[Rfam]
RNA sequence: GCGAUGAGCUGAUUCGUGUAAGUCGAGGAACAGGUUAAACAUGUGAUGUGAACACAUAGUUCUCUCGCCACGAAUAAUCGUUAGCGCCUAUAUUUAUAGGCGCU
Numbered sequence: 001g002c003g004a005u006g007a008g009c010u011g012a013u014u015c016g017u018g019u020a021a022g023u024c025g026a027g028g029a030a031c032a033g034g035u036u037a038a039a040c041a042u043g044u045g046a047u048g049u050g051a052a053c054a055c056a057u058a059g060u061u062c063u064c065u066c067g068c069c070a071c072g073a074a075u076a077a078u079c080g081u082u083a084g085c086g087c088c089u090a091u092a093u094u095u096a097u098a099g100g101c102g103c104u
Stems, first nucleotide, its partner, number of pairs: 014073005024067004028062004041057001043055003083104009
Dot-bracket structure: .............(((((.....((((((((.........(.(((.......))).).)))).)))).))))).........(((((((((....)))))))))
RNA: BsrF
Organism: Oceanobacillus indicireducens